[Rfam]
RNA sequence: UUCUAGCCUUGCGAUAUUCUUUGAAAAGAGAAUAUGGUGAGUGCUUGGGCUACAUGCUCUCUUGCUAGGGUUGUGUUGUUAGAAUGCAAUCAUAAAAUACAACUGCGACAUGCGUGAAGUGGUGGUGAUAUAACAAAGUAAGAGAGCUACUGAGG
Number, nucleotide and partner (000 for none) at each position: 001u049002u048003c047004u000005a045006g044007c043008c041009u040010u039011g038012c037013g000014a000015u000016a000017u000018u000019c000020u000021u000022u000023g000024a000025a000026a000027a000028g000029a000030g000031a000032a000033u000034a000035u000036g000037g012038u011039g010040a009041g008042u000043g007044c006045u005046u000047g003048g002049g001050c000051u000052a000053c000054a000055u000056g147057c146058u145059c144060u143061c142062u141063u140064g139065c138066u000067a000068g000069g000070g000071u000072u130073g129074u128075g000076u000077u000078g000079u000080u000081a000082g000083a000084a000085u000086g000087c000088a000089a000090u000091c000092a000093u000094a000095a000096a000097a000098u000099a000100c000101a000102a123103c122104u121105g120106c119107g000108a000109c116110a115111u000112g000113c000114g000115u110116g109117a000118a000119g106120u105121g104122g103123u102124g000125g000126u000127g000128a074129u073130a072131u000132a000133a000134c000135a000136a000137a000138g065139u064140a063141a062142g061143a060144g059145a058146g057147c056148u000149a000150c000151u000152g000153a000154g000155g000

The family of this 155-nucleotide RNA is "RT-16 RNA".
Pairs were carried over by alignment from the consensus structure, which is taken from published work.